[Rfam]
A member of the RNA family "Small nucleolar RNA SNORD47" from Anolis carolinensis, 75 nucleotides long. Its family is annotated with nucleolus and RNA processing in the Gene Ontology.
RNA sequence: AACCAGUGAUGAAAUUGAAUUCCGCCAUAUGAAUCCUUGUGAAAUUAACACAAUUCCGUUCCAUUUACUGAGGUU
Numbered sequence: 001a002a003c004c005a006g007u008g009a010u011g012a013a014a015u016u017g018a019a020u021u022c023c024g025c026c027a028u029a030u031g032a033a034u035c036c037u038u039g040u041g042a043a044a045u046u047a048a049c050a051c052a053a054u055u056c057c058g059u060u061c062c063a064u065u066u067a068c069u070g071a072g073g074u075u
Base pairs, nucleotide, nucleotide: 001075002074003073004072